[Rfam]
RNA sequence: UUCUGACACUCUUCACUACGGAUCGUCCGGCACGUACCUGCCGGUGAAGGGAACACACC
Numbered sequence: 001u002u003c004u005g006a007c008a009c010u011c012u013u014c015a016c017u018a019c020g021g022a023u024c025g026u027c028c029g030g031c032a033c034g035u036a037c038c039u040g041c042c043g044g045u046g047a048a049g050g051g052a053a054c055a056c057a058c059c
Base pairs, nucleotide, nucleotide: 009051010050011049012048013047014046015045027044028043029042030041031040032039
Record summary: The record is a 59-nucleotide sequence from Cellulomonas cellasea, which matches "msiK RNA" in Rfam. The match comes from Rfam's covariance-model search (67 bits). Lineage of the source: Bacteria > Actinomycetes > Cellulomonadaceae > Cellulomonas > Cellulomonas cellasea. The family's consensus secondary structure is taken from published work.